[Rfam]
RNA: Plastid-rpl20 3UTR RNA
RNA sequence: ACAGAAUUCCCCGGAGAAGAACUCCGGGAAAAUAGAAUAAAAUAAUUAAUAGUAUAGGAAUGAACGAAUAUGUUUCAAG
Numbered sequence: 001a002c003a004g005a006a007u008u009c010c011c012c013g014g015a016g017a018a019g020a021a022c023u024c025c026g027g028g029a030a031a032a033u034a035g036a037a038u039a040a041a042a043u044a045a046u047u048a049a050u051a052g053u054a055u056a057g058g059a060a061u062g063a064a065c066g067a068a069u070a071u072g073u074u075u076c077a078a079g
Stems, first nucleotide, its partner, number of pairs: 007030002010028007062075004